[Rfam]
RNA sequence: UCUGGUCCGCGCGACUGGCGCCAUGAGAUGGAGCACCAUCGGGGAGCGCGGGCCGCUUGCUUGCAAGCGAGCCGCCGCGCGCCUGGGCAUUGCGU
Number, nucleotide and partner (000 for none) at each position: 001u000002c000003u055004g054005g053006u052007c051008c050009g049010c048011g047012c046013g000014a000015c043016u042017g083018g082019c081020g080021c079022c000023a000024u000025g000026a000027g000028a039029u038030g037031g036032a000033g000034c000035a000036c031037c030038a029039u028040c000041g000042g016043g015044g000045a000046g012047c011048g010049c009050g008051g007052g006053c005054c004055g003056c000057u000058u000059g000060c000061u000062u000063g000064c000065a000066a000067g000068c000069g000070a000071g000072c000073c000074g088075c087076c086077g000078c000079g021080c020081g019082c018083c017084u000085g000086g076087g075088c074089a000090u000091u000092g000093c000094g000095u000